[Rfam]
Nucleotides: 089
Base pairs, nucleotide, nucleotide: 001042002041003040004039005038010030011029012028013026014025015024016023062089063088064087065086067084068083071080
Number, partner (000 for none) and nucleotide at each position: 001042g002041g003040a004039u005038c006000g007000g008000g009000c010030g011029g012028a013026a014025c015024c016023g017000g018000u019000g020000g021000g022000c023016c024015g025014g026013u027000a028012u029011c030010c031000g032000a033000g034000a035000a036000u037000a038005g039004a040003u041002c042001c043000g044000a045000a046000u047000u048000g049000c050000u051000u052000u053000g054000u055000u056000u057000u058000g059000c060000g061000a062089u063088a064087c065086g066000c067084c068083c069000u070000u071080g072000u073000u074000g075000c076000c077000c078000a079000g080071c081000u082000u083068g084067g085000a086065c087064g088063u089062a